[Rfam]
RNA sequence: UUGAAUGUUUUCUAGGGUUCCGCAACGAAUUGUUGGCCUGGUCCGAGAGAAAACUCAUAGCUUAGCUGUGCCACGGAAGGAUAAAAGCCUGGGAGAU
Numbered sequence: 001u002u003g004a005a006u007g008u009u010u011u012c013u014a015g016g017g018u019u020c021c022g023c024a025a026c027g028a029a030u031u032g033u034u035g036g037c038c039u040g041g042u043c044c045g046a047g048a049g050a051a052a053a054c055u056c057a058u059a060g061c062u063u064a065g066c067u068g069u070g071c072c073a074c075g076g077a078a079g080g081a082u083a084a085a086a087g088c089c090u091g092g093g094a095g096a097u
Stems, first nucleotide, its partner, number of pairs: 007054006015044002020041002022038001023035005056070006072092001074095001078090003

Rfam assigns this 97-nucleotide sequence from Oceanobacillus bengalensis to the family "Guanidine-I riboswitch aptamer".
The family has 100 seed sequences and 1,509 matches in Rfam 15.1.
A search with the family's covariance model found it, with a score of 83 bits.